[Rfam]
RNA sequence: AGAGCCCACGCGGGAGAGUUCGGGUUAGACCCGACGCCGAAGGAGCAAAUCCUCCCCGAGAACCUCUCAGGCGCAUGGACCGCGUGGACGAG
Dot-bracket structure: .....((((((((......((((.......)))).(((((..(((....(.......).....))))).))).......)))))))).....
Numbered sequence: 001a002g003a004g005c006c007c008a009c010g011c012g013g014g015a016g017a018g019u020u021c022g023g024g025u026u027a028g029a030c031c032c033g034a035c036g037c038c039g040a041a042g043g044a045g046c047a048a049a050u051c052c053u054c055c056c057c058g059a060g061a062a063c064c065u066c067u068c069a070g071g072c073g074c075a076u077g078g079a080c081c082g083c084g085u086g087g088a089c090g091a092g
Stems, first nucleotide, its partner, number of pairs: 006087008020034004036072003039068002043066003050058001

A member of the RNA family "Glycine riboswitch aptamer" from a Pseudonocardiaceae bacterium, 92 nucleotides long.
The base pairs follow the family's consensus structure.
This family represents the bacterial glycine riboswitch.
The match comes from Rfam's covariance-model search (73 bits).